[Rfam]
The family of this 124-nucleotide sequence from Thermacetogenium phaeum is "Molybdenum/Tungsten riboswitch aptamer (Moco RNA motif)".
It scores 59 bits against the family's covariance model.
RNA sequence: AGUGCAUCUUUUCUCCGAGUCCACAGUGCCUGUCGCCCUUGAAGGCUAUGGCCGUCGGACCGUCAGGGUUUACCUGGAAACAGGUAGGCCUCCCAAUGCGGAAAGGAGAUCAAAGCAGCCGACA
Numbered sequence: 001a002g003u004g005c006a007u008c009u010u011u012u013c014u015c016c017g018a019g020u021c022c023a024c025a026g027u028g029c030c031u032g033u034c035g036c037c038c039u040u041g042a043a044g045g046c047u048a049u050g051g052c053c054g055u056c057g058g059a060c061c062g063u064c065a066g067g068g069u070u071u072a073c074c075u076g077g078a079a080a081c082a083g084g085u086a087g088g089c090c091u092c093c094c095a096a097u098g099c100g101g102a103a104a105g106g107a108g109a110u111c112a113a114a115g116c117a118g119c120c121g122a123c124a
Stems, first nucleotide, its partner, number of pairs: 003118001012109005019060004026053001028052003035046003066091011092101002